[Rfam]
RNA: TPP riboswitch aptamer (THI element)
Organism: Mycolicibacterium tokaiense
RNA sequence: GCAAAACCACACGGGAGUGCACACCGAGUGCGCUGAGAGGACGGCUGGACGGCCGUCGACCGUACGAACCUGACCGGGUAAUGCCGGCGUAGGGAGAUGAAGGAGUCCUCAU
Number, nucleotide and partner (000 for none) at each position: 001g000002c000003a000004a000005a000006a000007c099008c000009a000010c096011a063012c062013g061014g060015g000016a000017g033018u032019g031020c030021a029022c000023a000024c000025c000026g000027a000028g000029u021030g020031c019032g018033c017034u000035g000036a000037g000038a000039g000040g057041a056042c055043g054044g053045c052046u051047g000048g000049a000050c000051g046052g045053c044054c043055g042056u041057c040058g000059a000060c014061c013062g012063u011064a000065c000066g000067a000068a000069c093070c092071u091072g090073a000074c087075c086076g085077g084078g000079u000080a000081a000082u000083g000084c077085c076086g075087g074088c000089g000090u072091a071092g070093g069094g000095a000096g010097a000098u000099g007100a000101a000102g000103g000104a000105g000106u000107c000108c000109u000110c000111a000112u000